Rfam assigns this 99-nucleotide RNA from Anopheles gambiae to the family "drz-agam-1 ribozyme".
For this family Rfam cites "Widespread occurrence of self-cleaving ribozymes" (Webb et al., Science, 2009).
The base pairs follow the family's consensus structure, which is taken from published work.
Lineage of the source: Eukaryota > Metazoa > Bilateria > Pancrustacea > Anopheles gambiae.
RNA sequence: GUAUCUUUAACUCCUAUCCCAACCUCCUCGUGGUGCUAGCUGGAUUAUAAUUGAAGAAUGCAGAUGUAUUGCUUCACAAUUAUAAACUAAUAGGGAUGG
Numbered sequence: 001g002u003a004u005c006u007u008u009a010a011c012u013c014c015u016a017u018c019c020c021a022a023c024c025u026c027c028u029c030g031u032g033g034u035g036c037u038a039g040c041u042g043g044a045u046u047a048u049a050a051u052u053g054a055a056g057a058a059u060g061c062a063g064a065u066g067u068a069u070u071g072c073u074u075c076a077c078a079a080u081u082a083u084a085a086a087c088u089a090a091u092a093g094g095g096a097u098g099g
Stems, first nucleotide, its partner, number of pairs: 013099002017095003021091001022034003045086002049081005